[Rfam]
RNA: FMN riboswitch aptamer (RFN element)
Organism: Burkholderia glumae
Nucleotides: 158
Base pairs, nucleotide, nucleotide: 004155005154006153007152008151009150010149017029018028019027031138032137033127034126035065036064037063038062060125061124069102070101107123108122109121110120111119129141130140131139
Number, partner (000 for none) and nucleotide at each position: 001000g002000a003000a004155c005154g006153u007152u008151c009150u010149c011000a012000g013000g014000g015000c016000g017029g018028g019027g020000c021000g022000a023000a024000a025000u026000u027019c028018c029017c030000c031138a032137c033127c034126g035065g036064c037063g038062g039000u040000a041000a042000u043000c044000a045000u046000g047000c048000u049000c050000c051000g052000c053000g054000c055000a056000u057000g058000u059000a060125g061124c062038c063037c064036g065035c066000g067000a068000a069102c070101a071000g072000c073000u074000c075000g076000c077000c078000u079000c080000g081000g082000g083000u084000g085000c086000g087000c088000c089000c090000g091000a092000c093000g094000c095000g096000a097000u098000g099000c100000c101070u102069g103000c104000c105000g106000a107123c108122c109121c110120g111119g112000u113000g114000c115000g116000a117000u118000u119111c120110c121109g122108g123107g124061g125060c126034c127033g128000a129141c130140g131139g132000u133000c134000a135000u136000a137032g138031u139131c140130c141129g142000g143000a144000u145000g146000a147000g148000a149010g150009a151008g152007a153006g154005c155004g156000g157000g158000g